[Rfam]
RNA: SAM riboswitch aptamer (S box leader)
RNA sequence: CGCUUAUAGAGAAAGACGGAGGGAUUAGACCCUGCGAAGUCUUAGCAACCUGUGCUUACAAGGUGCUAAAUUCUACUUAGAGUACAAGCUCUAGGAAAGAUAAGUA
Numbered sequence: 001c002g003c004u005u006a007u008a009g010a011g012a013a014a015g016a017c018g019g020a021g022g023g024a025u026u027a028g029a030c031c032c033u034g035c036g037a038a039g040u041c042u043u044a045g046c047a048a049c050c051u052g053u054g055c056u057u058a059c060a061a062g063g064u065g066c067u068a069a070a071u072u073c074u075a076c077u078u079a080g081a082g083u084a085c086a087a088g089c090u091c092u093a094g095g096a097a098a099g100a101u102a103a104g105u106a
Base pairs, nucleotide, nucleotide: 002105003104004103005102006101007100013043014042015041016040017039021032022031023030026075027074028073029072044067045066046065047064049063050062051060052059053058071098076095077094078093079092080091081090
Dot-bracket structure: .((((((.....(((((...(((..[[[[)))......)))))((((.(((((....))).))))))...(]]]]((((((........))))))..).)))))).